[Rfam]
RNA sequence: CGGCCGCUGAUAUGUCUGGUAUUCUUGGGUUCAUUCCUUACUCUGAACCAGUUUAUUAGACGUAUCGACGGCCGG
Numbered sequence: 001c002g003g004c005c006g007c008u009g010a011u012a013u014g015u016c017u018g019g020u021a022u023u024c025u026u027g028g029g030u031u032c033a034u035u036c037c038u039u040a041c042u043c044u045g046a047a048c049c050a051g052u053u054u055a056u057u058a059g060a061c062g063u064a065u066c067g068a069c070g071g072c073c074g075g
Stems, first nucleotide, its partner, number of pairs: 008067014028049004
The record is a 75-nucleotide sequence from Caenorhabditis brenneri, which matches "mir-50 microRNA precursor family" in Rfam.
On this family, see Lau et al., Science 2001: "An abundant class of tiny RNAs with probable regulatory roles in Caenorhabditis elegans".